Background
MIR5269 microRNA precursor family: an 80-nucleotide RNA from Medicago truncatula. A search with the family's covariance model found it, with a score of 74 bits. The family has 2 seed sequences and 389 matches in Rfam 15.1. Lineage of the source: Eukaryota > Tracheophyta > Euphyllophyta > fabids > Medicago.
RNA sequence: UUGGGUUAAAUCAAUGUGGGUCAUACAUUUUGGAAAUGAAAUCCAUAUAAAGUGGUGGGACAUAUAUUGAUUUUAUCCAA
Numbered sequence: 001u002u003g004g005g006u007u008a009a010a011u012c013a014a015u016g017u018g019g020g021u022c023a024u025a026c027a028u029u030u031u032g033g034a035a036a037u038g039a040a041a042u043c044c045a046u047a048u049a050a051a052g053u054g055g056u057g058g059g060a061c062a063u064a065u066a067u068u069g070a071u072u073u074u075a076u077c078c079a080a
Stems, first nucleotide, its partner, number of pairs: 001080006008073011024057002026054007